[Rfam]
RNA sequence: CAGGUCGAUGCGGGAGAGCCCCAGGAACGCCGGGGCACCGAAGGAGCAAUUCUCUCCACCAAUCUCUCAGGUACGUGUACCGCGUCGAACUG
Numbered sequence: 001c002a003g004g005u006c007g008a009u010g011c012g013g014g015a016g017a018g019c020c021c022c023a024g025g026a027a028c029g030c031c032g033g034g035g036c037a038c039c040g041a042a043g044g045a046g047c048a049a050u051u052c053u054c055u056c057c058a059c060c061a062a063u064c065u066c067u068c069a070g071g072u073a074c075g076u077g078u079a080c081c082g083c084g085u086c087g088a089a090c091u092g
Stems, first nucleotide, its partner, number of pairs: 006087008019035004037072003040068002044066003051058001